[Rfam]
RNA: Small nucleolar RNA SNORD60
RNA sequence: AGCCUGUGAUGAGCUGCCGUACUUCUGACACCUCGUAUGAGAACUGCGCUCGCAGUCUGAUUAUCCGCGCGCGACUGAGGCUU
Numbered sequence: 001a002g003c004c005u006g007u008g009a010u011g012a013g014c015u016g017c018c019g020u021a022c023u024u025c026u027g028a029c030a031c032c033u034c035g036u037a038u039g040a041g042a043a044c045u046g047c048g049c050u051c052g053c054a055g056u057c058u059g060a061u062u063a064u065c066c067g068c069g070c071g072c073g074a075c076u077g078a079g080g081c082u083u
Stems, first nucleotide, its partner, number of pairs: 001082004043056005